[Rfam]
RNA: U11 spliceosomal RNA
RNA sequence: AAAAAGGGUUGGUUGGCUAAAUAUGCCAUGACCGCCCUAGUUAGGUGGGUGCUGUAUGGCUAUCAAGACAUAAGACCGACAUAAUUUGUGGAACUUCUAUAGGGUUGGUUUUCUUUGGCCAACCCUCCA
Numbered sequence: 001a002a003a004a005a006g007g008g009u010u011g012g013u014u015g016g017c018u019a020a021a022u023a024u025g026c027c028a029u030g031a032c033c034g035c036c037c038u039a040g041u042u043a044g045g046u047g048g049g050u051g052c053u054g055u056a057u058g059g060c061u062a063u064c065a066a067g068a069c070a071u072a073a074g075a076c077c078g079a080c081a082u083a084a085u086u087u088g089u090g091g092a093a094c095u096u097c098u099a100u101a102g103g104g105u106u107g108g109u110u111u112u113c114u115u116u117g118g119c120c121a122a123c124c125c126u127c128c129a
Base pairs, nucleotide, nucleotide: 008080009079010078011077012076014028015027016026017025029051030050032048033047034046035045053074055072056071057070058069101126102125103124104123105122106121107120108119112118113117